Source information
Shown here is a 354-nucleotide RNA sequence from Citromicrobium sp. RCC1897, a member of the family "Alphaproteobacteria transfer-messenger RNA". For this family Rfam cites "Phylogenetic analysis of tmRNA secondary structure" (Williams and Bartel, RNA, 1996). It scores 228 bits against the family's covariance model.
[Rfam]
RNA sequence: CCACUUCACAUUCAGCGCGCAGCGCCUAUAUAGGGCAGUGCCGGUUUCGGCCGGCUAUGGUGAUAAACUGCGGUGUAUAAUAGACGCAAUGGACCCGGGGGCAGUACCCGGCGGCUCCACCAAAAGGCCCGGUUCCCUAGCGAGAGGGGCGGGCUUCCUGAUGGGGCCGAACCAGGAUCGACAUGCGUUGAAAGGCAUCGUUUUUGCCCGGAAUGAGCACUCCGUAAAAAGCUUAUUUCACAAGUGCCAACGAUAACGAAGCACUCGCUCUCGCUGCGUAAUUUGAUGGCCUAACGGCCUGAAUUUACAAAGCUAAAGCGCGGUUGGACCGACCGGGCAACAGAACGGAUACCG
Numbered sequence: 001c002c003a004c005u006u007c008a009c010a011u012u013c014a015g016c017g018c019g020c021a022g023c024g025c026c027u028a029u030a031u032a033g034g035g036c037a038g039u040g041c042c043g044g045u046u047u048c049g050g051c052c053g054g055c056u057a058u059g060g061u062g063a064u065a066a067a068c069u070g071c072g073g074u075g076u077a078u079a080a081u082a083g084a085c086g087c088a089a090u091g092g093a094c095c096c097g098g099g100g101g102c103a104g105u106a107c108c109c110g111g112c113g114g115c116u117c118c119a120c121c122a123a124a125a126g127g128c129c130c131g132g133u134u135c136c137c138u139a140g141c142g143a144g145a146g147g148g149g150c151g152g153g154c155u156u157c158c159u160g161a162u163g164g165g166g167c168c169g170a171a172c173c174a175g176g177a178u179c180g181a182c183a184u185g186c187g188u189u190g191a192a193a194g195g196c197a198u199c200g201u202u203u204u205u206g207c208c209c210g211g212a213a214u215g216a217g218c219a220c221u222c223c224g225u226a227a228a229a230a231g232c233u234u235a236u237u238u239c240a241c242a243a244g245u246g247c248c249a250a251c252g253a254u255a256a257c258g259a260a261g262c263a264c265u266c267g268c269u270c271u272c273g274c275u276g277c278g279u280a281a282u283u284u285g286a287u288g289g290c291c292u293a294a295c296g297g298c299c300u301g302a303a304u305u306u307a308c309a310a311a312g313c314u315a316a317a318g319c320g321c322g323g324u325u326g327g328a329c330c331g332a333c334c335g336g337g338c339a340a341c342a343g344a345a346c347g348g349a350u351a352c353c354g
Stems, first nucleotide, its partner, number of pairs: 040055005059208005070201007085187003089184003095111005112169007209224004214235003321335004326352001328350001330348001